[Rfam]
RNA: azaaromatic riboswitch aptamer (yjdF RNA)
RNA sequence: UCAGAUAAAGAUAAAAACACAUUCCGGUCGGUAGUCCGGAAGCAGCAGAGAUGCUGUCAGUAACCUGCCUCCUUGGUUGUCCGUUCUUUAUCAGGCAAAC
Numbered sequence: 001u002c003a004g005a006u007a008a009a010g011a012u013a014a015a016a017a018c019a020c021a022u023u024c025c026g027g028u029c030g031g032u033a034g035u036c037c038g039g040a041a042g043c044a045g046c047a048g049a050g051a052u053g054c055u056g057u058c059a060g061u062a063a064c065c066u067g068c069c070u071c072c073u074u075g076g077u078u079g080u081c082c083g084u085u086c087u088u089u090a091u092c093a094g095g096c097a098a099a100c
Stems, first nucleotide, its partner, number of pairs: 004092008022041006042057006067077003